[Rfam]
RNA sequence: AUGUGAAAUUUUGCUUUGGAAAGUGAAAUUUUGCUUUGGAAAGUGAAAUUUUGCUUUGGAAAGUGAAAUUUCCU
Numbered sequence: 001a002u003g004u005g006a007a008a009u010u011u012u013g014c015u016u017u018g019g020a021a022a023g024u025g026a027a028a029u030u031u032u033g034c035u036u037u038g039g040a041a042a043g044u045g046a047a048a049u050u051u052u053g054c055u056u057u058g059g060a061a062a063g064u065g066a067a068a069u070u071u072c073c074u
Base pairs, nucleotide, nucleotide: 008024009023010022011021012020014018028044029043030042031041032040048064049063050062051061052060054058

Record summary
This 74-nucleotide sequence from Strigamia maritima belongs to the Rfam family "Gut-1 RNA". Lineage of the source: Eukaryota > Protostomia > Chilopoda > Geophilomorpha > Strigamia. Pairs were carried over by alignment from the consensus structure, which is taken from published work. It scores 55 bits against the family's covariance model.